[Rfam]
RNA sequence: GAAUAAAGGAAGCAUGGUAAUGUACACACAAAUUGAUUUGGGUCUCUAGAUCUACCCUCUCUUGACUCUUAUGCCUUUCGGCUUUGAUUUGGGGGCAUGAUUCAACAGCUAAACG
Dot-bracket structure: ...........(.((......)).)..............(.(((.....(((..((.......................))....))).....))).).................
Numbered sequence: 001g002a003a004u005a006a007a008g009g010a011a012g013c014a015u016g017g018u019a020a021u022g023u024a025c026a027c028a029c030a031a032a033u034u035g036a037u038u039u040g041g042g043u044c045u046c047u048a049g050a051u052c053u054a055c056c057c058u059c060u061c062u063u064g065a066c067u068c069u070u071a072u073g074c075c076u077u078u079c080g081g082c083u084u085u086g087a088u089u090u091g092g093g094g095g096c097a098u099g100a101u102u103c104a105a106c107a108g109c110u111a112a113a114c115g
Stems, first nucleotide, its partner, number of pairs: 012025001014023002040098001042096003050088003055081002